The family of this 166-nucleotide sequence from Eragrostis curvula is "MIR2118 microRNA precursor family".

RNA sequence: GUCAGGAAGAGGAAGAAACGAGUGUCUUAGAGCAGUGGGCAUGGGAACAUGGAGGAAAACCAAAAGUUUCUUUUCCUCUACAAAUUGGGGUCUGAAAUUUGUUGGUGUUUUCCCGAUGCCUCCCAUGCCUAUAGUUCUUAGUCGCUCCUUCCCCUUACUUACGGCU
Numbered sequence: 001g002u003c004a005g006g007a008a009g010a011g012g013a014a015g016a017a018a019c020g021a022g023u024g025u026c027u028u029a030g031a032g033c034a035g036u037g038g039g040c041a042u043g044g045g046a047a048c049a050u051g052g053a054g055g056a057a058a059a060c061c062a063a064a065a066g067u068u069u070c071u072u073u074u075c076c077u078c079u080a081c082a083a084a085u086u087g088g089g090g091u092c093u094g095a096a097a098u099u100u101g102u103u104g105g106u107g108u109u110u111u112c113c114c115g116a117u118g119c120c121u122c123c124c125a126u127g128c129c130u131a132u133a134g135u136u137c138u139u140a141g142u143c144g145c146u147c148c149u150u151c152c153c154c155u156u157a158c159u160u161a162c163g164g165c166u
Stems, first nucleotide, its partner, number of pairs: 010156003015151003020147003026141002029138005036131011048118003052114001054113007

The literature on the family includes a 2009 paper in Nucleic Acids Res by Xue et al., "Characterization and expression profiles of miRNAs in rice seeds".